Shown here is a 135-nucleotide RNA sequence from Ochotona princeps, a member of the family "Small nucleolar RNA SNORA70". Taxonomically the source falls in Ochotona (Eukaryota, Eumetazoa, Craniata, Euarchontoglires). From the family's description: snoRNA U70 seems to be exclusive to mammals and is a member of the H/ACA class of snoRNA which contain H (ANANNA) and ACA box motifs.
Nucleotides: 135
Stems, first nucleotide, its partner, number of pairs: 002053004019048004025042001028039001078123003089111006
Number, partner (000 for none) and nucleotide at each position: 001000c002053u003052g004051c005050a006000g007000c008000u009000a010000a011000u012000u013000a014000a015000g016000c017000u018000g019048a020047c021046c022045a023000g024000c025042u026000c027000u028039c029000u030000u031000g032000c033000u034000u035000c036000a037000u038000g039028g040000u041000c042025g043000c044000c045022u046021g047020g048019u049000g050005u051004g052003c053002a054000a055000u056000g057000g058000c059000u060000g061000c062000a063000g064000a065000c066000a067000g068000c069000a070000g071000c072000c073000u074000c075000c076000u077000u078123g079122g080121u081000a082000g083000u084000g085000u086000a087000u088000g089111c090110a091109a092108c093107c094106u095000g096000u097000u098000g099000c100000u101000u102000g103000u104000a105000u106094g107093g108092g109091u110090u111089g112000c113000u114000c115000u116000a117000a118000g119000g120000g121080a122079c123078c124000u125000u126000g127000g128000a129000g130000a131000c132000a133000g134000u135000c